[Rfam]
RNA: Purine riboswitch aptamer
RNA sequence: UUCGAGCUGUUAAUACGUAACGAUAUAAGUUCAAGAUUGGUUGAACGUCUCUACCAACUCCCUCUAAGAGUUGACUAUUGGAACGAAAUAUUAACUG
Dot-bracket structure: .................(..(((((...((((((......))))))........((((((.......))))))..)))))..)..............